[Rfam]
The record is a 76-nucleotide sequence from Hibiscus syriacus, which matches "Small nucleolar RNA R12" in Rfam. It is annotated as a C/D-box small nucleolar RNA. It scores 69 bits against the family's covariance model. The family's consensus secondary structure was predicted with PFOLD. snoR12 is a C/D box small nucleolar RNA, which acts as a methylation guide for 25S ribosomal RNA in plants. snoR12 has been alternatively named snoZ44 in Arabidopsis and snoZ131 in rice.
RNA sequence: AAGAGGAUGAUGAAAACAAUCAAACGGAUUCCCAUUGAUUACUCUAUGAGAACAUUAUCAGCUACUUCUGACUCUU
Numbered sequence: 001a002a003g004a005g006g007a008u009g010a011u012g013a014a015a016a017c018a019a020u021c022a023a024a025c026g027g028a029u030u031c032c033c034a035u036u037g038a039u040u041a042c043u044c045u046a047u048g049a050g051a052a053c054a055u056u057a058u059c060a061g062c063u064a065c066u067u068c069u070g071a072c073u074c075u076u
Base pairs, nucleotide, nucleotide: 001076002075003074004073005072